Rfam assigns this 81-nucleotide sequence from Ophiophagus hannah to the family "mir-181 microRNA precursor family". For this family Rfam cites "microRNAs: tiny regulators with great potential" (Ambros, Cell, 2001). Gene Ontology terms of the family: miRNA-mediated post-transcriptional gene silencing and RISC complex.

RNA sequence: UGGCUGCACUCAACAUUCAUUGCUGUCGGUGGGUUUCGGGUUCGGUCAGCCCUCUGGCUAAUGAAUGCAAACUGCGGAUCA
Number, nucleotide and partner (000 for none) at each position: 001u081002g080003g079004c077005u076006g075007c074008a073009c000010u000011c000012a000013a000014c067015a066016u065017u064018c063019a062020u061021u060022g059023c000024u000025g058026u057027c056028g055029g054030u000031g052032g000033g050034u049035u048036u000037c000038g000039g000040g000041u000042u000043c000044g000045g000046u000047c000048a035049g034050c033051c000052c031053u000054c029055u028056g027057g026058c025059u022060a021061a020062u019063g018064a017065a016066u015067g014068c000069a000070a000071a000072c000073u008074g007075c006076g005077g004078a000079u003080c002081a001